[Rfam]
Source information: Rfam assigns this 132-nucleotide RNA from Tyrannus savana to the family "Small nucleolar RNA SNORA1". The match comes from Rfam's covariance-model search (111 bits).
RNA sequence: UGCCUCGUUUUUCAGCAAAUGGGCACAACCUGCUAUGUGUCCAAAUUGAAAAACGUGGCUAGAAGAGUAACAGGUUAUGCUUUCCUCACUGUAAAAUUAAUUGCAGUGGUGACAAUGAGACCUGUAACAGUU
Number, nucleotide and partner (000 for none) at each position: 001u000002g059003c058004c057005u000006c055007g054008u053009u000010u000011u000012u000013c000014a000015g000016c000017a000018a000019a000020u043021g042022g041023g040024c039025a038026c037027a000028a000029c000030c000031u000032g000033c000034u000035a000036u000037g026038u025039g024040u023041c022042c021043a020044a000045a000046u000047u000048g000049a000050a000051a000052a000053a008054c007055g006056u000057g004058g003059c002060u000061a000062g000063a000064a000065g000066a000067g000068u000069a000070a125071c124072a123073g122074g121075u000076u000077a000078u000079g000080c000081u000082u000083u000084c111085c000086u109087c108088a107089c106090u000091g000092u000093a000094a000095a000096a000097u000098u000099a000100a000101u000102u000103g000104c000105a000106g089107u088108g087109g086110u000111g084112a000113c000114a000115a000116u000117g000118a000119g000120a000121c074122c073123u072124g071125u070126a000127a000128c000129a000130g000131u000132u000
NCBI's taxonomy places the organism under Eukaryota, Opisthokonta, Amniota, Theropoda, Tyrannus. From the family's description: ACA1 is a member of the H/ACA class of snoRNA that guide the sites of modification of uridines to pseudouridines.